[Rfam]
RNA sequence: AACAACAAACUUGAAAGGGUGACGGGUGGCCGAUGGAUAACUGAUCCUGUUUCUACGCAACCGAAUUUUAUGGUUCAGCGGAAAUUGGAUUCGUCUGCCCUUUUUUCAUAAAGGCACCCUGCCGGUACCGGCGGGUAAUUUGGGUUUUCGAAUUCUUCCGACUUUAUGCGGAGGAAUUUUUUU
Number, nucleotide and partner (000 for none) at each position: 001a000002a000003c000004a000005a000006c000007a000008a000009a000010c000011u000012u000013g000014a000015a000016a000017g106018g105019g104020u000021g000022a000023c000024g100025g099026g098027u000028g000029g095030c000031c093032g000033a000034u000035g000036g000037a000038u000039a000040a000041c000042u000043g091044a090045u089046c088047c087048u000049g085050u084051u083052u082053c081054u080055a000056c000057g000058c000059a000060a000061c078062c000063g076064a075065a074066u073067u072068u000069u000070a000071u000072g067073g066074u065075u064076c063077a000078g061079c000080g054081g053082a052083a051084a050085u049086u000087g047088g046089a045090u044091u043092c000093g031094u000095c029096u000097g000098c026099c025100c024101u000102u000103u000104u019105u018106u017107c000108a000109u000110a000111a000112a000113g000114g000115c142116a141117c000118c135119c134120u133121g132122c131123c130124g129125g000126u000127a000128c000129c124130g123131g122132c121133g120134g119135g118136u000137a000138a000139u000140u000141u116142g115143g000144g000145u000146u000147u000148u000149c000150g000151a178152a177153u176154u175155c174156u173157u172158c171159c170160g169161a000162c000163u000164u000165u000166a000167u000168g000169c160170g159171g158172a157173g156174g155175a154176a153177u152178u151179u000180u000181u000182u000183u000
Bacillus sRNA ncr1575: a 183-nucleotide RNA sequence from Planococcus lenghuensis. The organism belongs to Planococcus, within Bacteria. It is annotated as a small RNA.